[Rfam]
Shown here is a 532-nucleotide part of an RNA from Halorubrum lacusprofundi, a member of the family "Archaeal large subunit ribosomal RNA". The family has 91 seed sequences and 2,955 matches in Rfam 15.1. NCBI's taxonomy places the organism under Archaea, Methanobacteriota, Halobacteria, Halorubrum, Halorubrum lacusprofundi. It is one of the family's seed sequences.

RNA sequence: GCUACUGUGCCAGCUGGUGAAUGGCUCGGCUCGAGAGCCGAUGAAGGACGUGCCAAGCUGCGAAAAGCUCAUGGGACCCGCAUGGAGGGGAAGAACAUGAGAUAUCCGAAUCGGAAUCCGUUUACAAUUGCCACGCGCAAUAGGGAACUCCCUGAAUUGAAACAUCUCAGUAAGGGAAGGAAAAGAACGCAAUAGCGAUGUCGUCAGUAACCGCGAGUGAACGCGACACAGCCCAAACCGAAGGUCUUCGGACCAAUGUGGUGUUCGGGUUGACAAUCAAUUCUCGACAUUUCAUCUGAAGUCUCCUGGAAUGGAGCGUGAGACAGGGUGACAACCCCGUAAGAUGAGGCAGUACAGAAGGCGUCAAUACCAGAGUAGCAGGGGUCGGAUAUCCUCUGUGAACGACUCAGGCAUCCCCUGAGAAGGCUAAACACUCCUCGAGACCGAUAGCGAACAAGUAGCGUGAGCGAACGCUGAAAAGCACCCCGAGAAGGGCGGUGCAAUAGGGCCUGAAAUCAGUUGGCGAUCGAGC
Numbered sequence: 001g002c003u004a005c006u007g008u009g010c011c012a013g014c015u016g017g018u019g020a021a022u023g024g025c026u027c028g029g030c031u032c033g034a035g036a037g038c039c040g041a042u043g044a045a046g047g048a049c050g051u052g053c054c055a056a057g058c059u060g061c062g063a064a065a066a067g068c069u070c071a072u073g074g075g076a077c078c079c080g081c082a083u084g085g086a087g088g089g090g091a092a093g094a095a096c097a098u099g100a101g102a103u104a105u106c107c108g109a110a111u112c113g114g115a116a117u118c119c120g121u122u123u124a125c126a127a128u129u130g131c132c133a134c135g136c137g138c139a140a141u142a143g144g145g146a147a148c149u150c151c152c153u154g155a156a157u158u159g160a161a162a163c164a165u166c167u168c169a170g171u172a173a174g175g176g177a178a179g180g181a182a183a184a185g186a187a188c189g190c191a192a193u194a195g196c197g198a199u200g201u202c203g204u205c206a207g208u209a210a211c212c213g214c215g216a217g218u219g220a221a222c223g224c225g226a227c228a229c230a231g232c233c234c235a236a237a238c239c240g241a242a243g244g245u246c247u248u249c250g251g252a253c254c255a256a257u258g259u260g261g262u263g264u265u266c267g268g269g270u271u272g273a274c275a276a277u278c279a280a281u282u283c284u285c286g287a288c289a290u291u292u293c294a295u296c297u298g299a300a301g302u303c304u305c306c307u308g309g310a311a312u313g314g315a316g317c318g319u320g321a322g323a324c325a326g327g328g329u330g331a332c333a334a335c336c337c338c339g340u341a342a343g344a345u346g347a348g349g350c351a352g353u354a355c356a357g358a359a360g361g362c363g364u365c366a367a368u369a370c371c372a373g374a375g376u377a378g379c380a381g382g383g384g385u386c387g388g389a390u391a392u393c394c395u396c397u398g399u400g401a402a403c404g405a406c407u408c409a410g411g412c413a414u415c416c417c418c419u420g421a422g423a424a425g426g427c428u429a430a431a432c433a434c435u436c437c438u439c440g441a442g443a444c445c446g447a448u449a450g451c452g453a454a455c456a457a458g459u460a461g462c463g464u465g466a467g468c469g470a471a472c473g474c475u476g477a478a479a480a481g482c483a484c485c486c487c488g489a490g491a492a493g494g495g496c497g498g499u500g501c502a503a504u505a506g507g508g509c510c511u512g513a514a515a516u517c518a519g520u521u522g523g524c525g526a527u528c529g530a531g532c
Stems, first nucleotide, its partner, number of pairs: 008525010023510001024474002028445002030442006036435002046107003049062003068101006077089003112120003127141005148179001149177005159166002189196002200227005210218002230428004238261003243254004271366004281359004295344003301317001303316004320324001326338003378399007406422005461468002